Overview: The family of this 110-nucleotide RNA sequence from Mycolicibacterium phlei is "TPP riboswitch aptamer (THI element)". Vitamin B(1) in its active form thiamin pyrophosphate (TPP) is an essential coenzyme that is synthesised by coupling of pyrimidine and thiazole moieties in bacteria. It scores 59 bits against the family's covariance model. Pairs were carried over by alignment from the consensus structure, which is taken from published work.
[Rfam]
RNA sequence: AUGUCCACACACGGGAGCACGCACCCAGCGUGCUGAGAGGACGGGUGGGCCCGUCGACCGUACGAACCUGACCGGGUAAUGCCGGCGUAGGGAGUUGCCAUGACCGCUGU
Numbered sequence: 001a002u003g004u005c006c007a008c009a010c011a012c013g014g015g016a017g018c019a020c021g022c023a024c025c026c027a028g029c030g031u032g033c034u035g036a037g038a039g040g041a042c043g044g045g046u047g048g049g050c051c052c053g054u055c056g057a058c059c060g061u062a063c064g065a066a067c068c069u070g071a072c073c074g075g076g077u078a079a080u081g082c083c084g085g086c087g088u089a090g091g092g093a094g095u096u097g098c099c100a101u102g103a104c105c106g107c108u109g110u
Stems, first nucleotide, its partner, number of pairs: 009095002011061004017033005040055005067091004072085004